[Rfam]
RNA sequence: UUGCACAGAGAACACCCAGGGAUGCUAACGUGGCUCUCCCUGGUCUCUGUGUCUGUGCUAAAGCAACUCUGAUCUUUACCUCUGCAUUAGAAGAGUUUGUUCUCUUCUACAUGUAUUCAGCUGAUCAGAACAAAC
Numbered sequence: 001u002u003g004c005a006c007a008g009a010g011a012a013c014a015c016c017c018a019g020g021g022a023u024g025c026u027a028a029c030g031u032g033g034c035u036c037u038c039c040c041u042g043g044u045c046u047c048u049g050u051g052u053c054u055g056u057g058c059u060a061a062a063g064c065a066a067c068u069c070u071g072a073u074c075u076u077u078a079c080c081u082c083u084g085c086a087u088u089a090g091a092a093g094a095g096u097u098u099g100u101u102c103u104c105u106u107c108u109a110c111a112u113g114u115a116u117u118c119a120g121c122u123g124a125u126c127a128g129a130a131c132a133a134a135c
Base pairs, nucleotide, nucleotide: 003058004057005056006055007054008053010052013049014048016043017042018041019040020039022037024034025033026032060075062073064071065070082120083119084118085113086112087111089108090107091106092105093104094103095102

The record is a 135-nucleotide RNA from Channa argus, which matches "Small nucleolar RNA SNORA22" in Rfam. It scores 102 bits against the family's covariance model. By type it is an H/ACA-box small nucleolar RNA. The family's consensus secondary structure was predicted with RNAfold. Rfam describes the family as follows. ACA22 is a member of the H/ACA class of snoRNA that guide the sites of modification of uridines to pseudouridines.